[Rfam]
RNA sequence: AACAAAAUGAUGAGGUUUUUUUUGAGGUGAAUAUAUGAUGUGCCUAACUCAUAUUGUGCUAUGCCUUCAAAGUUCUCUGAUUGUU
Numbered sequence: 001a002a003c004a005a006a007a008u009g010a011u012g013a014g015g016u017u018u019u020u021u022u023u024g025a026g027g028u029g030a031a032u033a034u035a036u037g038a039u040g041u042g043c044c045u046a047a048c049u050c051a052u053a054u055u056g057u058g059c060u061a062u063g064c065c066u067u068c069a070a071a072g073u074u075c076u077c078u079g080a081u082u083g084u085u
Base pairs, nucleotide, nucleotide: 001085002084003083004082005081